[Rfam]
RNA: GcvB RNA
Organism: Candidatus Erwinia dacicola
RNA sequence: ACUUCCUGAACCGGAACGAAAAGUGCAUUGAAAUUACGUGUUAACUCACGGAAUUUUUUAGGAGUUUUUGGCUUGUGUUCGUGAUGUUGUGUUUGCAAUUGACCUGACGAUUUUCGGGGCUGGUAGCUGAGCCACCUUUUAUUCCUGUAGAUUUACCCUGUCUGUCCAAGUGAUUUUAAUAGCACCGCUUAACGCGGUGCUUUUUUUU
Numbered sequence: 001a002c003u004u005c006c007u008g009a010a011c012c013g014g015a016a017c018g019a020a021a022a023g024u025g026c027a028u029u030g031a032a033a034u035u036a037c038g039u040g041u042u043a044a045c046u047c048a049c050g051g052a053a054u055u056u057u058u059u060a061g062g063a064g065u066u067u068u069u070g071g072c073u074u075g076u077g078u079u080c081g082u083g084a085u086g087u088u089g090u091g092u093u094u095g096c097a098a099u100u101g102a103c104c105u106g107a108c109g110a111u112u113u114u115c116g117g118g119g120c121u122g123g124u125a126g127c128u129g130a131g132c133c134a135c136c137u138u139u140u141a142u143u144c145c146u147g148u149a150g151a152u153u154u155a156c157c158c159u160g161u162c163u164g165u166c167c168a169a170g171u172g173a174u175u176u177u178a179a180u181a182g183c184a185c186c187g188c189u190u191a192a193c194g195c196g197g198u199g200c201u202u203u204u205u206u207u208u
Stems, first nucleotide, its partner, number of pairs: 009073001011071002015069002021067004026062001028061006101120001103118005122136003126132002151180003181201008